[Rfam]
RNA sequence: UGCAAUACCCAUCAAAGAGGUAGUUCCCCAUCCCGGAGCUACUUUACCAGAUCAAUAG
Numbered sequence: 001u002g003c004a005a006u007a008c009c010c011a012u013c014a015a016a017g018a019g020g021u022a023g024u025u026c027c028c029c030a031u032c033c034c035g036g037a038g039c040u041a042c043u044u045u046a047c048c049a050g051a052u053c054a055a056u057a058g
Base pairs, nucleotide, nucleotide: 017045018044019043020042021041022040023039024038025037026036027035
Dot-bracket structure: ................(((((((((((.......))))))))))).............
The family of this 58-nucleotide sequence from Medicago truncatula is "Plastid-psbN 5UTR RNA". It scores 61 bits against the family's covariance model. Plastid psbN is a non-coding RNA (ncRNA) recognised in plastids. It was reported as a conserved 11 stem-loop in the prime untranslated region (5UTR) of psbN genes. Rfam classes the family as a cis-regulatory element. The organism belongs to Medicago, within Eukaryota. Rfam 15.1 lists 2,345 matches to the family in 397 species.